[Rfam]
RNA: Rhizobiales sRNA Atu_At1
RNA sequence: AUGCGGCUCGUGACAACCGGACGCGACGGACAUGGAGAACGCGGGGAUUUUUCCGGUUUCUUCCCGCGGCCAACGAAACGGCAGCCGAGCUCCUGACCCGUCCGGGCC
Numbered sequence: 001a002u003g004c005g006g007c008u009c010g011u012g013a014c015a016a017c018c019g020g021a022c023g024c025g026a027c028g029g030a031c032a033u034g035g036a037g038a039a040c041g042c043g044g045g046g047a048u049u050u051u052u053c054c055g056g057u058u059u060c061u062u063c064c065c066g067c068g069g070c071c072a073a074c075g076a077a078a079c080g081g082c083a084g085c086c087g088a089g090c091u092c093c094u095g096a097c098c099c100g101u102c103c104g105g106g107c108c
Base pairs, nucleotide, nucleotide: 006107007106008105009104011023012022014020025102026101027100028099029098034093035092036091037090040068041067042066043065044064045063046062069082070081071080